[Rfam]
RNA sequence: AACGUCAGAAGAGGUGCGGCUAUUAGGUAGCAAAUUGGAGAAGUCUCAACUUCAUUGAUAAUUUGUCAGGGAAUAGUCGCCGAGGGUAAUACUUGUUGAGAUAAGUAUUGUUCGGCUAUAUAGGUUGAGUCCUAUUGGUUGUCACCUAUAUGGUGGAGCGCUUCUGGCCGG
Numbered sequence: 001a002a003c004g005u006c007a008g009a010a011g012a013g014g015u016g017c018g019g020c021u022a023u024u025a026g027g028u029a030g031c032a033a034a035u036u037g038g039a040g041a042a043g044u045c046u047c048a049a050c051u052u053c054a055u056u057g058a059u060a061a062u063u064u065g066u067c068a069g070g071g072a073a074u075a076g077u078c079g080c081c082g083a084g085g086g087u088a089a090u091a092c093u094u095g096u097u098g099a100g101a102u103a104a105g106u107a108u109u110g111u112u113c114g115g116c117u118a119u120a121u122a123g124g125u126u127g128a129g130u131c132c133u134a135u136u137g138g139u140u141g142u143c144a145c146c147u148a149u150a151u152g153g154u155g156g157a158g159c160g161c162u163u164c165u166g167g168c169c170g171g
Base pairs, nucleotide, nucleotide: 006166007165008164009163010162011161016080017079018078019077020076021075022074023073024072030066031065032064033063034062035061036060037059084113085112086111087110088109089108090107091106092105093104094103095102114140115139116138117137120135121134122133123132124131142156143155144154145153146152